[Rfam]
The family of this 76-nucleotide RNA from Bagarius yarrelli is "mir-30 microRNA precursor family". The base pairs follow the family's consensus structure, which was predicted with PFOLD. This family consists of the mammalian microRNA (miRNA) precursor mir-30a. For this family Rfam cites "Identification of novel genes coding for small expressed RNAs" (Lagos-Quintana et al., Science, 2001). Its family is annotated with gene silencing by miRNA and RISC complex in the Gene Ontology. Taxonomically the source falls in Bagarius (Eukaryota, Bilateria, Euteleostomi, Actinopterygii).
RNA sequence: UGGGCUACUGUAAACAUCCUUGACUGGAAGCUGGUGCUUAGAAUUGAGCUUUCAGUCGGAUGUUUGCAGCAGCCAA
Number, nucleotide and partner (000 for none) at each position: 001u000002g000003g074004g073005c072006u071007a000008c069009u068010g067011u066012a065013a064014a063015c062016a061017u060018c059019c058020u000021u000022g000023a056024c055025u054026g053027g052028a051029a050030g049031c048032u047033g000034g000035u000036g000037c000038u000039u000040a000041g000042a000043a000044u000045u000046g000047a032048g031049c030050u029051u028052u027053c026054a025055g024056u023057c000058g019059g018060a017061u016062g015063u014064u013065u012066g011067c010068a009069g008070c000071a006072g005073c004074c003075a000076a000